A member of the RNA family "cspA thermoregulator" from Duffyella gerundensis, 481 nucleotides long.
[Rfam]
RNA sequence: AUCGGUUUGGAACACAGACCUUAUGAACGCAGUUUUAGUAAAGCAGUCCUCAGCUCAAGUGUUAUCCUUUGAUAUCCUUCUUCGUGAGCCUCCUCCUAAGUGCCAAGUAAGUUUCUCUCUGCGAUACAGGCCAUCUUUCGCCGCUUUAAGUGGCUCAUAAAUAAAGGAAAUAUCACAUGUCUGAUACAAUGACUGGUACAGUAAAAUGGUUUGAUGCUGGUAAAGGUUUUGGCUUUAUCACUCCUCAGGACGGCAGCAAAGAUGUAUUCGUACAUUUCUCUGCAAUCCAGAGCGAUGAUUACAAAACUCUCGACGAAGGCCAGACCGUGACCUUCACCAUCGAGAAGGGCGCUAAAGGCCCAUCAGCUGCAAACGUUAAAGCUAUCUAAUAUAUCGACCGCUGUAUCUGUGAUAACGGCCUAGCCUGAGCAGAUAAGCAACGAUAUAAGUGAUAAAACCCGCCUCGUGCGGGUUUUUUGUU
Numbered sequence: 001a002u003c004g005g006u007u008u009g010g011a012a013c014a015c016a017g018a019c020c021u022u023a024u025g026a027a028c029g030c031a032g033u034u035u036u037a038g039u040a041a042a043g044c045a046g047u048c049c050u051c052a053g054c055u056c057a058a059g060u061g062u063u064a065u066c067c068u069u070u071g072a073u074a075u076c077c078u079u080c081u082u083c084g085u086g087a088g089c090c091u092c093c094u095c096c097u098a099a100g101u102g103c104c105a106a107g108u109a110a111g112u113u114u115c116u117c118u119c120u121g122c123g124a125u126a127c128a129g130g131c132c133a134u135c136u137u138u139c140g141c142c143g144c145u146u147u148a149a150g151u152g153g154c155u156c157a158u159a160a161a162u163a164a165a166g167g168a169a170a171u172a173u174c175a176c177a178u179g180u181c182u183g184a185u186a187c188a189a190u191g192a193c194u195g196g197u198a199c200a201g202u203a204a205a206a207u208g209g210u211u212u213g214a215u216g217c218u219g220g221u222a223a224a225g226g227u228u229u230u231g232g233c234u235u236u237a238u239c240a241c242u243c244c245u246c247a248g249g250a251c252g253g254c255a256g257c258a259a260a261g262a263u264g265u266a267u268u269c270g271u272a273c274a275u276u277u278c279u280c281u282g283c284a285a286u287c288c289a290g291a292g293c294g295a296u297g298a299u300u301a302c303a304a305a306a307c308u309c310u311c312g313a314c315g316a317a318g319g320c321c322a323g324a325c326c327g328u329g330a331c332c333u334u335c336a337c338c339a340u341c342g343a344g345a346a347g348g349g350c351g352c353u354a355a356a357g358g359c360c361c362a363u364c365a366g367c368u369g370c371a372a373a374c375g376u377u378a379a380a381g382c383u384a385u386c387u388a389a390u391a392u393a394u395c396g397a398c399c400g401c402u403g404u405a406u407c408u409g410u411g412a413u414a415a416c417g418g419c420c421u422a423g424c425c426u427g428a429g430c431a432g433a434u435a436a437g438c439a440a441c442g443a444u445a446u447a448a449g450u451g452a453u454a455a456a457a458c459c460c461g462c463c464u465c466g467u468g469c470g471g472g473u474u475u476u477u478u479g480u481u
Stems, first nucleotide, its partner, number of pairs: 004020006029244001031242003042236002045234004049226002055223001061221004067216001069214004074210003080179001082177001084176003094168004100127003140154006181196003185192001249341002252338002261269002273329003279324004283319001286313002289310003294307001296305001348361002351359003363389001365387002367381002371377001392447003452478001454476009
By type it is an RNA thermoregulator. Rfam 15.1 lists 2,094 matches to the family in 1,285 species.